[Rfam]
RNA sequence: UUUUAGAAUCAUUCAAAACAACACAGCAAGUUAAAAUAAGGCAGUGAUUUUUAAUCCAGUCCGUACUCAACUUGAAAAAGGGAGCACCGAUUCGGUGCUUUUGUG
Numbered sequence: 001u002u003u004u005a006g007a008a009u010c011a012u013u014c015a016a017a018a019c020a021a022c023a024c025a026g027c028a029a030g031u032u033a034a035a036a037u038a039a040g041g042c043a044g045u046g047a048u049u050u051u052u053a054a055u056c057c058a059g060u061c062c063g064u065a066c067u068c069a070a071c072u073u074g075a076a077a078a079a080g081g082g083a084g085c086a087c088c089g090a091u092u093c094g095g096u097g098c099u100u101u102u103g104u105g
Stems, first nucleotide, its partner, number of pairs: 001036005009026001012023001040062002072079002083099007